[Rfam]
RNA sequence: AAUGGUCAAGUGAUGAUCUGUGCAUAGUUCAAAUGAAAAAUCUCUAAUGAGAUUUUGAUUAAUAAUUUUCUAGUCUUUCGCUCCUAUCUGAUGACCAUC
Numbered sequence: 001a002a003u004g005g006u007c008a009a010g011u012g013a014u015g016a017u018c019u020g021u022g023c024a025u026a027g028u029u030c031a032a033a034u035g036a037a038a039a040a041u042c043u044c045u046a047a048u049g050a051g052a053u054u055u056u057g058a059u060u061a062a063u064a065a066u067u068u069u070c071u072a073g074u075c076u077u078u079c080g081c082u083c084c085u086a087u088c089u090g091a092u093g094a095c096c097a098u099c
Base pairs, nucleotide, nucleotide: 004096005095006094007093008092